The record is a 54-nucleotide RNA from Oncorhynchus kisutch, which matches "UnaL2 LINE 3' element" in Rfam. It scores 56 bits against the family's covariance model. On this family, see Baba et al., RNA 2004: "Solution structure of an RNA stem-loop derived from the 3' conserved region of eel LINE UnaL2". The base pairs follow the family's consensus structure, which is taken from published work.

RNA sequence: UGCAUGCAUGAUUGUAAGUUGCUUUGAACAAAAGCCUCUGCUAAAUGGCACAUA
Numbered sequence: 001u002g003c004a005u006g007c008a009u010g011a012u013u014g015u016a017a018g019u020u021g022c023u024u025u026g027a028a029c030a031a032a033a034g035c036c037u038c039u040g041c042u043a044a045a046u047g048g049c050a051c052a053u054a
Stems, first nucleotide, its partner, number of pairs: 013043001014041003021035005